[Rfam]
RNA sequence: CCUGUGGAGUGUUUACAUCAAACCAAAGUAGCUCCGGCAAAAUGGGACACUGUGAAGCAGGAA
Dot-bracket structure: (((((...(((((.........(((.....((....))....))))))))......)))))..